Rfam assigns this 158-nucleotide RNA sequence from Glycine soja to the family "MIR4371 microRNA precursor family". A search with the family's covariance model found it, with a score of 127 bits. Rfam 15.1 lists 321 matches to the family in 4 species. The base pairs follow the family's consensus structure, which was predicted with RNAalifold. Clan: MIR4387 microRNA precursor clan.
[Rfam]
RNA sequence: CCGUUAAGUGAUGACGUGAGAGGCGAAGUGUCAUGUUAUCACGCUCAAUCACUUACACAUCAAUGCUACAUUAUUGAAGGUGAUGAUAUGACAAUGAAGUGUCCAUGACAAGGCAUGAUGAUGUGACACUCCGACUGUCACCUCAUAACUUAACGGAA
Numbered sequence: 001c002c003g004u005u006a007a008g009u010g011a012u013g014a015c016g017u018g019a020g021a022g023g024c025g026a027a028g029u030g031u032c033a034u035g036u037u038a039u040c041a042c043g044c045u046c047a048a049u050c051a052c053u054u055a056c057a058c059a060u061c062a063a064u065g066c067u068a069c070a071u072u073a074u075u076g077a078a079g080g081u082g083a084u085g086a087u088a089u090g091a092c093a094a095u096g097a098a099g100u101g102u103c104c105a106u107g108a109c110a111a112g113g114c115a116u117g118a119u120g121a122u123g124u125g126a127c128a129c130u131c132c133g134a135c136u137g138u139c140a141c142c143u144c145a146u147a148a149c150u151u152a153a154c155g156g157a158a
Stems, first nucleotide, its partner, number of pairs: 001156009011146004016141004021136002024133002027130015043114003049108003055102004070087005